[Rfam]
RNA sequence: GCGUAGUGACAAAUCGGUCGGGAACCGAUUUGAACGCUGCUUGCAGCGGCCCCGAAGGGGCGAGGCCCAGGGAUGGGCCGAGUAACUGCAGC
Numbered sequence: 001g002c003g004u005a006g007u008g009a010c011a012a013a014u015c016g017g018u019c020g021g022g023a024a025c026c027g028a029u030u031u032g033a034a035c036g037c038u039g040c041u042u043g044c045a046g047c048g049g050c051c052c053c054g055a056a057g058g059g060g061c062g063a064g065g066c067c068c069a070g071g072g073a074u075g076g077g078c079c080g081a082g083u084a085a086c087u088g089c090a091g092c
Stems, first nucleotide, its partner, number of pairs: 010032008035048005049061005064079006082089002
A member of the RNA family "Aggregatibacter sRNA 22" from Serratia sp. DD3, 92 nucleotides long. Pairs were carried over by alignment from the consensus structure, which was predicted with RNAfold. A reference for the family is Oogai et al. (2017), "Small RNA repertoires and their intraspecies variation in Aggregatibacter actinomycetemcomitans", DNA Res. The family's RNA type in Rfam is small RNA.